[Rfam]
RNA sequence: UCAAUUCUUCGGGGCGAGGUGAAAUUCCUCACCGACGGUGAUAGUCCGUGAGUGCGUUAGCACUGAUUUGGUGAAAUUCCAAAACCGACAGUAUAGUCUGGAUGGGAGAAGGAUAGU
Numbered sequence: 001u002c003a004a005u006u007c008u009u010c011g012g013g014g015c016g017a018g019g020u021g022a023a024a025u026u027c028c029u030c031a032c033c034g035a036c037g038g039u040g041a042u043a044g045u046c047c048g049u050g051a052g053u054g055c056g057u058u059a060g061c062a063c064u065g066a067u068u069u070g071g072u073g074a075a076a077u078u079c080c081a082a083a084a085c086c087g088a089c090a091g092u093a094u095a096g097u098c099u100g101g102a103u104g105g106g107a108g109a110a111g112g113a114u115a116g117u
Stems, first nucleotide, its partner, number of pairs: 004114007017029003031097002033087002035049004044085002052063003067083005089100003

This 117-nucleotide RNA sequence from Candidatus Epulonipiscium fishelsonii belongs to the Rfam family "FMN riboswitch aptamer (RFN element)". The source organism's lineage runs through Bacteria, Bacillota, Clostridia, Lachnospirales and Candidatus Epulonipiscium. Rfam links the family to the GO term FMN binding.